Shown here is a 143-nucleotide RNA sequence from Actinomadura barringtoniae, a member of the family "c-di-AMP riboswitch aptamer (ydaO/yuaA leader)". It scores 88 bits against the family's covariance model. From the family's description: This family represents a conserved RNA structure found upstream of the ydaO and yuaA genes in Bacillus subtilis and related genes in other bacteria.
RNA sequence: UGGACGGCCCCGCCGAGUCCGCGGUCACGCGGAGCCGGGGAACCACACGUUCCUUUGGGGUGAAUCGGCCUCUGAGCAGGCCGUAGGGCAGCUUCCACGCCCGAACCCGUCAGCUAACCCGGUAGGCGGCAUGGAAGCCAAGG
Numbered sequence: 001u002g003g004a005c006g007g008c009c010c011c012g013c014c015g016a017g018u019c020c021g022c023g024g025u026c027a028c029g030c031g032g033a034g035c036c037g038g039g040g041a042a043c044c045a046c047a048c049g050u051u052c053c054u055u056u057g058g059g060g061u062g063a064a065u066c067g068g069c070c071u072c073u074g075a076g077c078a079g080g081c082c083g084u085a086g087g088g089c090a091g092c093u094u095c096c097a098c099g100c101c102c103g104a105a106c107c108c109g110u111c112a113g114c115u116a117a118c119c120c121g122g123u124a125g126g127c128g129g130c131a132u133g134g135a136a137g138c139c140a141a142g143g
Stems, first nucleotide, its partner, number of pairs: 011128004018033006034123006044057002058108003066083004086102004